[Rfam]
RNA sequence: UAGUAUCGGUGAAGAUGCCGAUUACCCGCAGUGGGACGAAAAGACCCUGUGCACCUUUACUAUAGCUUAGUAUUGGUCUUGGAUAAGUGAUGUGUAGGAUAGGUGGGAGACUAUGAAGUGGCGUCGCUAGGCGUUGUGGAGUCAUUGUUGAAAUACCACCCUUUGCUUAUCUGAGAUCUAACUCUCUUUCGAGAGGACAUUGCUUGGUGGGUAGUUUGACUGGGGUGGUCGCCUCCAAAAGAGUAACGGAGGCUUCUAAAGGUUCCCUCAGCACGCUUGGUAACCGUGCGUAGAGUGCAAUGGCAUAAGGGAGCUUGACUGAGAGACAUACAGGUCGAUCAGGUACGAAAGUAGAGCAUAGUGAUCCGGUGGUUCCGCAUGGAAGGGCCAUCGCUCAAAGGAUAAAAGGUACGCCGGGGAUAACAGGCUGAUCUCCCCCAAGAGCUCAUAUCGACGGGGGGGUUUGGCACCUCGAUGUCGGCUCGUCACAUCCUGGGGCUGGAGAAGGUCCCAAGGGUUGGGCUGUUCGCCCAUUAAAGUGGCACGCGAGCUGGGUUCAGAACGUCGUGAGACAGUUCGGUCUCUAUCUACUGUGGGCGU
Numbered sequence: 001u002a003g004u005a006u007c008g009g010u011g012a013a014g015a016u017g018c019c020g021a022u023u024a025c026c027c028g029c030a031g032u033g034g035g036a037c038g039a040a041a042a043g044a045c046c047c048u049g050u051g052c053a054c055c056u057u058u059a060c061u062a063u064a065g066c067u068u069a070g071u072a073u074u075g076g077u078c079u080u081g082g083a084u085a086a087g088u089g090a091u092g093u094g095u096a097g098g099a100u101a102g103g104u105g106g107g108a109g110a111c112u113a114u115g116a117a118g119u120g121g122c123g124u125c126g127c128u129a130g131g132c133g134u135u136g137u138g139g140a141g142u143c144a145u146u147g148u149u150g151a152a153a154u155a156c157c158a159c160c161c162u163u164u165g166c167u168u169a170u171c172u173g174a175g176a177u178c179u180a181a182c183u184c185u186c187u188u189u190c191g192a193g194a195g196g197a198c199a200u201u202g203c204u205u206g207g208u209g210g211g212u213a214g215u216u217u218g219a220c221u222g223g224g225g226u227g228g229u230c231g232c233c234u235c236c237a238a239a240a241g242a243g244u245a246a247c248g249g250a251g252g253c254u255u256c257u258a259a260a261g262g263u264u265c266c267c268u269c270a271g272c273a274c275g276c277u278u279g280g281u282a283a284c285c286g287u288g289c290g291u292a293g294a295g296u297g298c299a300a301u302g303g304c305a306u307a308a309g310g311g312a313g314c315u316u317g318a319c320u321g322a323g324a325g326a327c328a329u330a331c332a333g334g335u336c337g338a339u340c341a342g343g344u345a346c347g348a349a350a351g352u353a354g355a356g357c358a359u360a361g362u363g364a365u366c367c368g369g370u371g372g373u374u375c376c377g378c379a380u381g382g383a384a385g386g387g388c389c390a391u392c393g394c395u396c397a398a399a400g401g402a403u404a405a406a407a408g409g410u411a412c413g414c415c416g417g418g419g420a421u422a423a424c425a426g427g428c429u430g431a432u433c434u435c436c437c438c439c440a441a442g443a444g445c446u447c448a449u450a451u452c453g454a455c456g457g458g459g460g461g462g463u464u465u466g467g468c469a470c471c472u473c474g475a476u477g478u479c480g481g482c483u484c485g486u487c488a489c490a491u492c493c494u495g496g497g498g499c500u501g502g503a504g505a506a507g508g509u510c511c512c513a514a515g516g517g518u519u520g521g522g523c524u525g526u527u528c529g530c531c532c533a534u535u536a537a538a539g540u541g542g543c544a545c546g547c548g549a550g551c552u553g554g555g556u557u558c559a560g561a562a563c564g565u566c567g568u569g570a571g572a573c574a575g576u577u578c579g580g581u582c583u584c585u586a587u588c589u590a591c592u593g594u595g596g597g598c599g600u
Base pairs, nucleotide, nucleotide: 005022006021007020008019009018025597026596027595028594029593030592031591032590034589035588036587038584039583046418047417048416049415051414052413053410054409055408056407057406059215060214061213062212066207067206069204070203071202072201075178076177077176078175079174080173081172082171083170084169085168086167087166088165089164090163092161102160103159104158105157106156109143110142111141118137119136120135121134122133123132124131125130182195183194184193218230219229220228221227231253232252233251234250235249236248254399256356257355262314263313264312265311266310267309268294269293271289272288273287274286275285295304296303319342320341321340322339325336326335327334344353345352346351367393368392369391370390371389372388373387375386376385427468428467429466431465432462433461434460435459436458437457438456442452443451479554480552481551482550483549484546485543486542487541488540489539492517493516495512496511497510498509499508500507519533520532521531522530523529560578561577562576563575564573565572566571